[Rfam]
RNA sequence: CCGGGUGAGGCCACGCGCCCCUGGGUCCGGGUGAGGCCGUGUGCCCCUGGAUCCGGGUGAGGCCACGCGCCCCU
Numbered sequence: 001c002c003g004g005g006u007g008a009g010g011c012c013a014c015g016c017g018c019c020c021c022u023g024g025g026u027c028c029g030g031g032u033g034a035g036g037c038c039g040u041g042u043g044c045c046c047c048u049g050g051a052u053c054c055g056g057g058u059g060a061g062g063c064c065a066c067g068c069g070c071c072c073c074u
Stems, first nucleotide, its partner, number of pairs: 003072005009064004016059005023054009033045001036042002